Y RNA: a 99-nucleotide sequence from Prolemur simus. Rfam classes the family as a non-coding RNA gene. It scores 58 bits against the family's covariance model. Pairs were carried over by alignment from the consensus structure, which is taken from published work. On this family, see Teunissen et al., Nucleic Acids Res 2000: "Conserved features of Y RNAs: a comparison of experimentally derived secondary structures".
RNA sequence: GGCUGGUCCGAUGGUAGUGGGUUAUCAGAACUUAUUAACAUUAGUGUCACUAAAGUUGAUAUUCAAACCCCCCCCCACUACUAAAUUUACUGGCUUUAA
Numbered sequence: 001g002g003c004u005g006g007u008c009c010g011a012u013g014g015u016a017g018u019g020g021g022u023u024a025u026c027a028g029a030a031c032u033u034a035u036u037a038a039c040a041u042u043a044g045u046g047u048c049a050c051u052a053a054a055g056u057u058g059a060u061a062u063u064c065a066a067a068c069c070c071c072c073c074c075c076c077a078c079u080a081c082u083a084a085a086u087u088u089a090c091u092g093g094c095u096u097u098a099a
Stems, first nucleotide, its partner, number of pairs: 001095007010088002015083001016079006033061003037057002

Lineage of the source: Eukaryota > Opisthokonta > Amniota > Lemuriformes > Prolemur.